[Rfam]
RNA sequence: UGAGGAAGCCUGUGAUGUCUUAGCCGUGGUGUCUGAACCUGGCUGAGGGACUCUUGUGAAGACUCUUUUGGCUCUGAGGCUUCCAGAGCA
Number, nucleotide and partner (000 for none) at each position: 001u000002g000003a000004g084005g083006a082007a081008g080009c079010c078011u000012g000013u000014g000015a000016u000017g000018u000019c000020u000021u000022a000023g000024c000025c000026g000027u000028g000029g000030u000031g000032u000033c000034u000035g000036a000037a000038c000039c000040u000041g000042g000043c000044u000045g000046a000047g000048g000049g000050a000051c000052u000053c000054u000055u000056g000057u000058g000059a000060a000061g000062a000063c000064u000065c000066u000067u000068u000069u000070g000071g000072c000073u000074c000075u000076g000077a000078g010079g009080c008081u007082u006083c005084c004085a000086g000087a000088g000089c000090a000
Shown here is a 90-nucleotide RNA sequence from Elachura formosa, a member of the family "Small nucleolar RNA SNORD91 family". The literature on the family includes a 2001 paper in EMBO J by Huttenhofer et al., "RNomics: an experimental approach that identifies 201 candidates for novel, small, non-messenger RNAs in mouse". It scores 58 bits against the family's covariance model. Pairs were carried over by alignment from the consensus structure. Lineage of the source: Eukaryota > Teleostomi > Dipnotetrapodomorpha > Archosauria > Elachura.